[Rfam]
RNA sequence: ACACAUCUCCAGUUUAUGCGUGAAUCAAAUGCCUUCAGAGCCGCCCUUUUUAAUCAGGUCAUUCAAUGGUGUUAGAUUCACGCACAAACUUGUGAUUUGGCU
Numbered sequence: 001a002c003a004c005a006u007c008u009c010c011a012g013u014u015u016a017u018g019c020g021u022g023a024a025u026c027a028a029a030u031g032c033c034u035u036c037a038g039a040g041c042c043g044c045c046c047u048u049u050u051u052a053a054u055c056a057g058g059u060c061a062u063u064c065a066a067u068g069g070u071g072u073u074a075g076a077u078u079c080a081c082g083c084a085c086a087a088a089c090u091u092g093u094g095a096u097u098u099g100g101c102u
Stems, first nucleotide, its partner, number of pairs: 002099002005096003011090005017084010028073003032069002043059001045057001

This 102-nucleotide RNA from Durio zibethinus belongs to the Rfam family "MIR403 microRNA precursor family".
The family's consensus secondary structure was predicted with WAR.
The match comes from Rfam's covariance-model search (79 bits).
The literature on the family includes a 2009 paper in BMC Genomics by Mica et al., "High throughput approaches reveal splicing of primary microRNA transcripts and tissue specific expression of mature microRNAs in Vitis vinifera".
Rfam links the family to the GO terms RISC complex and miRNA-mediated post-transcriptional gene silencing.
Taxonomically the source falls in Durio (Eukaryota, Streptophyta, Gunneridae, Pentapetalae).